[Rfam]
RNA: mir-205 microRNA precursor family
Organism: Edolisoma coerulescens
Nucleotides: 074
Base pairs, nucleotide, nucleotide: 011063012062013061014060015059016058019055020054021053023051024050025049026048028046029045030044
Number, partner (000 for none) and nucleotide at each position: 001000u002000u003000u004000c005000u006000g007000g008000g009000u010000c011063c012062u013061u014060c015059a016058u017000u018000c019055c020054a021053c022000u023051g024050g025049a026048a027000u028046c029045u030044g031000u032000c033000g034000a035000u036000g037000c038000c039000g040000a041000a042000c043000c044030c045029g046028g047000a048026u049025u050024u051023c052000a053021g054020u055019g056000a057000a058016a059015u060014g061013a062012a063011g064000c065000c066000c067000c068000u069000c070000a071000g072000a073000g074000a